[Rfam]
RNA sequence: GUUUCCGUAGUGUAGUGGUUAUCACGUCUGCUUUACACGCAGAAGGUCCUCGGUUCGAUCCCGGGCGGAAGCA
Numbered sequence: 001g002u003u004u005c006c007g008u009a010g011u012g013u014a015g016u017g018g019u020u021a022u023c024a025c026g027u028c029u030g031c032u033u034u035a036c037a038c039g040c041a042g043a044a045g046g047u048c049c050u051c052g053g054u055u056c057g058a059u060c061c062c063g064g065g066c067g068g069a070a071g072c073a
Base pairs, nucleotide, nucleotide: 001072002071003070004069005068006067007066010025011024012023027043028042029041030040031039049065050064051063052062053061
tRNA: a 73-nucleotide RNA from Ladona fulva.
Lineage of the source: Eukaryota > Bilateria > Ecdysozoa > Insecta > Ladona.
It is annotated as a transfer RNA.
Its family is annotated with triplet codon-amino acid adaptor activity in the Gene Ontology.